[Rfam]
RNA sequence: UGGGUGUGGAGAGAGCAGAGCGCCUGAAGAAUGGCUCCUCUGUGUACAACACAUCCAACAGCAAAUUGGGCUUACUCCUCACCAGUGGCAGAAUACUAUGGCCUUCCUGUGACAUUACACCCUAUACAU
Numbered sequence: 001u002g003g004g005u006g007u008g009g010a011g012a013g014a015g016c017a018g019a020g021c022g023c024c025u026g027a028a029g030a031a032u033g034g035c036u037c038c039u040c041u042g043u044g045u046a047c048a049a050c051a052c053a054u055c056c057a058a059c060a061g062c063a064a065a066u067u068g069g070g071c072u073u074a075c076u077c078c079u080c081a082c083c084a085g086u087g088g089c090a091g092a093a094u095a096c097u098a099u100g101g102c103c104u105u106c107c108u109g110u111g112a113c114a115u116u117a118c119a120c121c122c123u124a125u126a127c128a129u
Stems, first nucleotide, its partner, number of pairs: 002056007013045001015043006022035003069122002072119001082111001085104001087102001089100002092097001
RNA: Small nucleolar RNA SNORA11